[Rfam]
RNA sequence: UAAGCGGCCUUCUAGGGUUCCGCGGCUUAGCCGGUCAGGUCCGAGAGAAGGCGCACAGCCAAGCUGCGGCUGUGUACACGGAAGGAGAAAAGCCUGGGAGUA
Numbered sequence: 001u002a003a004g005c006g007g008c009c010u011u012c013u014a015g016g017g018u019u020c021c022g023c024g025g026c027u028u029a030g031c032c033g034g035u036c037a038g039g040u041c042c043g044a045g046a047g048a049a050g051g052c053g054c055a056c057a058g059c060c061a062a063g064c065u066g067c068g069g070c071u072g073u074g075u076a077c078a079c080g081g082a083a084g085g086a087g088a089a090a091a092g093c094c095u096g097g098g099a100g101u102a
Base pairs, nucleotide, nucleotide: 007052008051009050010049011048012047015042016041020039021038022036023033024032025031026030053075054074055073056072057071058070059069060068077097079100083095084094085093
Dot-bracket structure: ......((((((..((...(((((((...))))..).)).))....))))))((((((((.......)))))))).(.[...(((.......))).)..]..